[Rfam]
RNA sequence: CAAGACGGUCCGGAAUGAUGUUUUUUUCUCCAAAAACUCAGGUCAGAUACCUUGAAAAUUUGAGGGAUGACCUCAUCUAAUCUCCAGUAGCAAUCUGACCUGAAAGGGGGAAAUGAUGCGUCUGGAUCGUCUUAC
Numbered sequence: 001c002a003a004g005a006c007g008g009u010c011c012g013g014a015a016u017g018a019u020g021u022u023u024u025u026u027u028c029u030c031c032a033a034a035a036a037c038u039c040a041g042g043u044c045a046g047a048u049a050c051c052u053u054g055a056a057a058a059u060u061u062g063a064g065g066g067a068u069g070a071c072c073u074c075a076u077c078u079a080a081u082c083u084c085c086a087g088u089a090g091c092a093a094u095c096u097g098a099c100c101u102g103a104a105a106g107g108g109g110g111a112a113a114u115g116a117u118g119c120g121u122c123u124g125g126a127u128c129g130u131c132u133u134a135c
Base pairs, nucleotide, nucleotide: 002133003132004131005130006129007128008127009126010125011124012123015121016120017119019115020114021113022042023041024040029036050065051064052063053062054061055060066077067076068075069074081111082110083109084108085107088104